[Rfam]
RNA sequence: CUAUAUCCGCAACAGGGAUUGCAGCGGCAUCCUUUUUUGGUGUGAUAGUGCCUUUGACCGUUCAGCGGAAUGAAUUGUAUAAACUGUUGCUUCAGAUGAGACCAAAAAAGAUAUAGCGGAAAGCCCGGCCGUUG
Numbered sequence: 001c002u003a004u005a006u007c008c009g010c011a012a013c014a015g016g017g018a019u020u021g022c023a024g025c026g027g028c029a030u031c032c033u034u035u036u037u038u039g040g041u042g043u044g045a046u047a048g049u050g051c052c053u054u055u056g057a058c059c060g061u062u063c064a065g066c067g068g069a070a071u072g073a074a075u076u077g078u079a080u081a082a083a084c085u086g087u088u089g090c091u092u093c094a095g096a097u098g099a100g101a102c103c104a105a106a107a108a109a110g111a112u113a114u115a116g117c118g119g120a121a122a123g124c125c126c127g128g129c130c131g132u133u134g
Stems, first nucleotide, its partner, number of pairs: 015126003019122002024117002029112003035107007
This 134-nucleotide RNA sequence from Rasiella rasia belongs to the Rfam family "Flavo-1 RNA". By type it is a small RNA. The match comes from Rfam's covariance-model search (52 bits).